[Rfam]
RNA sequence: CUUCAUGCCUGAAAGGGCGACGGUGAAAGCCGGAGCGGGGUCUCAGCAGAGGUCAUAGUAGUUGGUGGUAGCGCCGGGAAGGCUCGACCCCACCGACGAAGGAC
Number, nucleotide and partner (000 for none) at each position: 001c000002u000003u022004c000005a000006u019007g018008c017009c016010u015011g000012a000013a000014a000015g010016g009017g008018c007019g006020a000021c000022g003023g000024u000025g000026a000027a000028a000029g000030c000031c000032g000033g000034a000035g000036c000037g000038g000039g000040g000041u000042c051043u050044c049045a000046g000047c000048a000049g044050a043051g042052g104053u103054c102055a000056u000057a000058g000059u000060a000061g097062u096063u095064g094065g093066u092067g091068g090069u000070a000071g000072c000073g000074c000075c000076g000077g000078g000079a000080a000081g000082g000083c000084u000085c000086g000087a000088c000089c000090c068091c067092a066093c065094c064095g063096a062097c061098g000099a000100a000101g000102g054103a053104c052

Shown here is a 104-nucleotide RNA sequence from Massilia eurypsychrophila, a member of the family "Group II catalytic intron D1-D4-1". The organism belongs to Massilia, within Bacteria. A search with the family's covariance model found it, with a score of 36 bits.